[Rfam]
RNA sequence: AAGUUUCCUGCUUCAACAGUGCUUGGACAGAACCC
Numbered sequence: 001a002a003g004u005u006u007c008c009u010g011c012u013u014c015a016a017c018a019g020u021g022c023u024u025g026g027a028c029a030g031a032a033c034c035c
Base pairs, nucleotide, nucleotide: 003034005032006031007030010028012027013026014025015024016023017021
RNA: Iron response element I